[Rfam]
RNA sequence: CGAGCUGUGUGAUAUGUUUGAUAUUCGGUUGUUCUCCAGCAUAAUCUGUCAACUAAAUAUCAGACAUAUUCCUACAGAACC
Number, nucleotide and partner (000 for none) at each position: 001c000002g000003a000004g000005c077006u076007g075008u074009g073010u000011g070012a069013u068014a067015u066016g065017u064018u063019u062020g061021a060022u059023a058024u057025u056026c000027g054028g053029u052030u051031g050032u000033u000034c000035u000036c000037c000038a000039g000040c000041a000042u000043a000044a000045u000046c000047u000048g000049u000050c031051a030052a029053c028054u027055a000056a025057a024058u023059a022060u021061c020062a019063g018064a017065c016066a015067u014068a013069u012070u011071c000072c000073u009074a008075c007076a006077g005078a000079a000080c000081c000
A member of the RNA family "mir-190 microRNA precursor family" from Albula goreensis, 81 nucleotides long. Clan: mir-50 clan. The organism belongs to Albula, within Eukaryota. Pairs were carried over by alignment from the consensus structure, which was predicted with RNAalifold.